RNA sequence: GCGGGUCAUCAAGAGAAGGGCUGGCGCCCUCGCCAACCUGCCCGGCCGGGCAAGGUGGUCUCCCUGACACAAAGGAUCGGGUCAGCCGGUUCGCGUUUUGGGGAUGUGGCCGCAACUCAGCGGCAACGAAACGGUCAUCC
Numbered sequence: 001g002c003g004g005g006u007c008a009u010c011a012a013g014a015g016a017a018g019g020g021c022u023g024g025c026g027c028c029c030u031c032g033c034c035a036a037c038c039u040g041c042c043c044g045g046c047c048g049g050g051c052a053a054g055g056u057g058g059u060c061u062c063c064c065u066g067a068c069a070c071a072a073a074g075g076a077u078c079g080g081g082u083c084a085g086c087c088g089g090u091u092c093g094c095g096u097u098u099u100g101g102g103g104a105u106g107u108g109g110c111c112g113c114a115a116c117u118c119a120g121c122g123g124c125a126a127c128g129a130a131a132c133g134g135u136c137a138u139c140c
Stems, first nucleotide, its partner, number of pairs: 007106004015031001017030005032059003037055003040051003044136005109124004
Dot-bracket structure: ......((((....(.(((((....))))))(((..((((((.[[[[[))).))).)))...........................................))))..((((........)))).......]]]]]....
RNA: SAM-I/IV (S-adenosyl methionine) riboswitch aptamer